[Rfam]
RNA sequence: AAGUUAAUCGGCGAUGACGUUCGCCACAUAAUAAUUGAUAAUCAAUUUGAUGACGUCUACUGUUUG
Number, nucleotide and partner (000 for none) at each position: 001a000002a000003g000004u000005u000006a000007a000008u000009c000010g025011g024012c023013g022014a000015u000016g057017a056018c055019g054020u053021u052022c013023g012024c011025c010026a000027c000028a000029u000030a000031a000032u000033a000034a000035u000036u000037g047038a046039u045040a000041a000042u000043c000044a000045a039046u038047u037048u000049g000050a000051u000052g021053a020054c019055g018056u017057c016058u000059a000060c000061u000062g000063u000064u000065u000066g000
Shown here is a 66-nucleotide sequence from Lactiplantibacillus plantarum, a member of the family "Fluoride riboswitch aptamer (crcB RNA motif)". Rfam links the family to the GO terms response to fluoride and positive regulation of gene expression.